[Rfam]
RNA sequence: GAGCUGUGAAGAAAUACGUAAAGAAAUCUGAGAUUUUGCUGAAGUCAUAAGAUCCAACUCUGAGCUCGCUGCCGUA
Numbered sequence: 001g002a003g004c005u006g007u008g009a010a011g012a013a014a015u016a017c018g019u020a021a022a023g024a025a026a027u028c029u030g031a032g033a034u035u036u037u038g039c040u041g042a043a044g045u046c047a048u049a050a051g052a053u054c055c056a057a058c059u060c061u062g063a064g065c066u067c068g069c070u071g072c073c074g075u076a
Stems, first nucleotide, its partner, number of pairs: 001067004
RNA: Small nucleolar RNA SNORD19